[Rfam]
RNA sequence: GGCAGAUGAUGUCUGUUUUCAUGAUGGUCUUCAGAGAUCCACCAUGGGUCCUACUGAGAAAGCCACUUGGUUCAACUGAUGCUAGAAA
Numbered sequence: 001g002g003c004a005g006a007u008g009a010u011g012u013c014u015g016u017u018u019u020c021a022u023g024a025u026g027g028u029c030u031u032c033a034g035a036g037a038u039c040c041a042c043c044a045u046g047g048g049u050c051c052u053a054c055u056g057a058g059a060a061a062g063c064c065a066c067u068u069g070g071u072u073c074a075a076c077u078g079a080u081g082c083u084a085g086a087a088a
Base pairs, nucleotide, nucleotide: 001083002082003081004080

A member of the RNA family "Small nucleolar RNA SNORD35" from Carlito syrichta, 88 nucleotides long. It is annotated as a C/D-box small nucleolar RNA. A search with the family's covariance model found it, with a score of 79 bits. The family's consensus secondary structure was predicted with PFOLD. U35 is a C/D box snoRNA located in intron 6 of ribosomal protein L13A and intron 3 of ribosomal protein S11 in humans and at homologous positions in mouse and chicken ribosomal protein genes. U35 guides the methylation of 2'-O-ribose sites in 28S rRNA. The family has 8 seed sequences and 1,842 matches in Rfam 15.1.